[Rfam]
RNA: Plastid-psbA-1 3UTR RNA
Organism: Beta vulgaris
RNA sequence: UUUGAGCUUCAUCUACAAAUGGAUAAACUUUCGUUUUCAGAUUAGUGUAUACGAGUUAUUAGAAGCAUAUAGGGCAAUGUCGGUUUCUUGUUCAGACGAAAAGUGUUAUUGCUCCUUU
Numbered sequence: 001u002u003u004g005a006g007c008u009u010c011a012u013c014u015a016c017a018a019a020u021g022g023a024u025a026a027a028c029u030u031u032c033g034u035u036u037u038c039a040g041a042u043u044a045g046u047g048u049a050u051a052c053g054a055g056u057u058a059u060u061a062g063a064a065g066c067a068u069a070u071a072g073g074g075c076a077a078u079g080u081c082g083g084u085u086u087c088u089u090g091u092u093c094a095g096a097c098g099a100a101a102a103g104u105g106u107u108a109u110u111g112c113u114c115c116u117u118u
Stems, first nucleotide, its partner, number of pairs: 008023005069117001072114008082104001084102001086101001088099002